Overview
A member of the RNA family "PreQ1 (pre queuosine) riboswitch aptamer" from Paenibacillus durus, 39 nucleotides long. It scores 47 bits against the family's covariance model. Rfam describes the family as follows. This family is a bacterial riboswitch that binds to the metabolite preQ1, an intermediate in the biosynthesis of the modified nucleoside queuosine from GTP. One example of this riboswitch is located in the leader of the Bacillus subtilis ykvJKLM (queCDEF) operon which encodes four genes necessary for queuosine production. PreQ1 binding to the riboswitch aptamer is thought to induce premature transcription termination within the leader to down-regulate expression of these genes. For this family Rfam cites "Analysis of a preQ1-I riboswitch in effector-free and bound states reveals a metabolite-programmed nucleobase-stacking spine that controls gene regulation" (Schroeder et al., Nucleic Acids Res, 2020). The family has 43 seed sequences and 873 matches in Rfam 15.1. Gene Ontology term of the family: queuosine biosynthetic process.
RNA sequence: GCAGGAGAGGUUCGCAAACUCCCUCUAUAAAAAACUAAG
Dot-bracket structure: .....(((((.....[.....))))).........]...